[Rfam]
RNA: Bacterial large signal recognition particle RNA
RNA sequence: CCGUGCUAGGUGGGGAAUUAGCGGUGCCCUGUACUCGCAAUCCGCUAUAGCGAGACUGAAUCCCUUCCCGAGGUUUAGCCACUGCAGGGUCUGCCCUGAAUAAGUGGUGUUGACAUUCGGGUCCUGCGCAACAGAGUCCUACGAAUCCUGUCAGGUCCGGAAGGAAGCAGCAGUAAGUAGGUACCCUCUGUGUGCCGCGGGAGUGCCCGGAUCGAGCUAACUGUUCAGGUAACGCCUGUGGUGGCUUUAUCAAAGGAAGGUGCACGG
Numbered sequence: 001c002c003g004u005g006c007u008a009g010g011u012g013g014g015g016a017a018u019u020a021g022c023g024g025u026g027c028c029c030u031g032u033a034c035u036c037g038c039a040a041u042c043c044g045c046u047a048u049a050g051c052g053a054g055a056c057u058g059a060a061u062c063c064c065u066u067c068c069c070g071a072g073g074u075u076u077a078g079c080c081a082c083u084g085c086a087g088g089g090u091c092u093g094c095c096c097u098g099a100a101u102a103a104g105u106g107g108u109g110u111u112g113a114c115a116u117u118c119g120g121g122u123c124c125u126g127c128g129c130a131a132c133a134g135a136g137u138c139c140u141a142c143g144a145a146u147c148c149u150g151u152c153a154g155g156u157c158c159g160g161a162a163g164g165a166a167g168c169a170g171c172a173g174u175a176a177g178u179a180g181g182u183a184c185c186c187u188c189u190g191u192g193u194g195c196c197g198c199g200g201g202a203g204u205g206c207c208c209g210g211a212u213c214g215a216g217c218u219a220a221c222u223g224u225u226c227a228g229g230u231a232a233c234g235c236c237u238g239u240g241g242u243g244g245c246u247u248u249a250u251c252a253a254a255g256g257a258a259g260g261u262g263c264a265c266g267g
Stems, first nucleotide, its partner, number of pairs: 001267006009057003012030004017025003034054005063260006072251003079244010092231002096228006104221002106218003115212008123201006129192002132190005138181005148173004156165003